This 161-nucleotide RNA sequence from Rhododendron williamsianum belongs to the Rfam family "U1 spliceosomal RNA". Rfam describes the family as follows. U1 is a small nuclear RNA (snRNA) component of the spliceosome (involved in pre-mRNA splicing). Its 5' end forms complementary base pairs with the 5' splice junction, thus defining the 5' donor site of an intron. There are significant differences in sequence and secondary structure between metazoan and yeast U1 snRNAs, the latter being much longer (568 nucleotides as compared to 164 nucleotides in human). Nevertheless, secondary structure predictions suggest that all U1 snRNAs share a 'common core' consisting of helices I, II, the proximal region of III, and IV. This family does not contain the larger yeast sequences. A search with the family's covariance model found it, with a score of 140 bits. The family's consensus secondary structure is taken from published work. The organism belongs to Rhododendron, within Eukaryota.
RNA sequence: AUACUUACCUGGACGGGGUCUAUGGGCGAUCAAUAAGGCUCAUGGCCUAGGUUGGUGGCCUCCAUUGCACUCUGGAGGGGUGCCAGCCUAAGGUCUACCCAAGUGGUGGAGCCUACGUCAUAAUUUGUUACCGAGGGGGCCUGCGUUCGCGCGGCCCCUGC
Numbered sequence: 001a002u003a004c005u006u007a008c009c010u011g012g013a014c015g016g017g018g019u020c021u022a023u024g025g026g027c028g029a030u031c032a033a034u035a036a037g038g039c040u041c042a043u044g045g046c047c048u049a050g051g052u053u054g055g056u057g058g059c060c061u062c063c064a065u066u067g068c069a070c071u072c073u074g075g076a077g078g079g080g081u082g083c084c085a086g087c088c089u090a091a092g093g094u095c096u097a098c099c100c101a102a103g104u105g106g107u108g109g110a111g112c113c114u115a116c117g118u119c120a121u122a123a124u125u126u127g128u129u130a131c132c133g134a135g136g137g138g139g140c141c142u143g144c145g146u147u148c149g150c151g152c153g154g155c156c157c158c159u160g161c
Stems, first nucleotide, its partner, number of pairs: 012119004016048005023042005049089003053086001055083003059079003062075002091114003094110003098106002135159004142153004